[Rfam]
Overview: Shown here is a 107-nucleotide sequence from Caenorhabditis brenneri, a member of the family "SL2 RNA". Pairs were carried over by alignment from the consensus structure, which is taken from published work. The family's RNA type in Rfam is non-coding RNA gene. Gene Ontology term of the family: mRNA trans splicing, via spliceosome. A reference for the family is Dassanayake et al. (2001), "Trans-spliced leader RNA, 5S-rRNA genes and novel variant orphan spliced-leader of the lymphatic filarial nematode Wuchereria bancrofti, and a sensitive polymerase chain reaction based detection assay", Gene. The organism belongs to Caenorhabditis, within Eukaryota.
RNA sequence: GGUUUUAACCCAGUAACCAAGGUUGGCUGUCGUUUCGAACUCUCGAAAGAGUGUCGAAUAACUAAAACUUCUGGAAACGCUUCUUCGGGGUUAUCCGAAGAGGCAGA
Numbered sequence: 001g002g003u004u005u006u007a008a009c010c011c012a013g014u015a016a017c018c019a020a021g022g023u024u025g026g027c028u029g030u031c032g033u034u035u036c037g038a039a040c041u042c043u044c045g046a047a048a049g050a051g052u053g054u055c056g057a058a059u060a061a062c063u064a065a066a067a068c069u070u071c072u073g074g075a076a077a078c079g080c081u082u083c084u085u086c087g088g089g090g091u092u093a094u095c096c097g098a099a100g101a102g103g104c105a106g107a
Base pairs, nucleotide, nucleotide: 007034008033010029013027014026015024016023017022036056037055038054040053042051043050044049081105083103084102085101086100089096090095